Rfam assigns this 138-nucleotide RNA from Falsibacillus albus to the family "c-di-AMP riboswitch aptamer (ydaO/yuaA leader)". Lineage of the source: Bacteria > Bacillota > Bacilli > Bacillaceae > Falsibacillus. From the family's description: This family represents a conserved RNA structure found upstream of the ydaO and yuaA genes in Bacillus subtilis and related genes in other bacteria. The ydaO/yuaA element is thought to act as a genetic 'off' switch for the ydaO and yuaA genes in its native state. It is believed that the element may be triggered during osmotic shock leading to activation of ydaO, a predicted amino acid transporter gene, and members of the yuaA-yubG operon which code for KtrA and KtrB K+ transporters. Its family is annotated with regulation of gene expression and cyclic-di-AMP binding in the Gene Ontology.
RNA sequence: UAAAAAACAAUGCCGAAUCCUUUAUGGAGCGGGGGACCCAACAUGUGGUAAGUCAACCACACAGGGGUGAACCAUAUGGAAGGGCACAUUCCAGCCCGAACCCGACAGCUAACCUCGCAGGCGAAUUGGAUCGAGUCU
Numbered sequence: 001u002a003a004a005a006a007a008c009a010a011u012g013c014c015g016a017a018u019c020c021u022u023u024a025u026g027g028a029g030c031g032g033g034g035g036a037c038c039c040a041a042c043a044u045g046u047g048g049u050a051a052g053u054c055a056a057c058c059a060c061a062c063a064g065g066g067g068u069g070a071a072c073c074a075u076a077u078g079g080a081a082g083g084g085c086a087c088a089u090u091c092c093a094g095c096c097c098g099a100a101c102c103c104g105a106c107a108g109c110u111a112a113c114c115u116c117g118c119a120g121g122c123g124a125a126u127u128g129g130a131u132c133g134a135g136u137c138u
Base pairs, nucleotide, nucleotide: 011123012122013121014120018028019027020026029118030117031116032115033114034113039064065103066102067101072079073078082097083096084095085094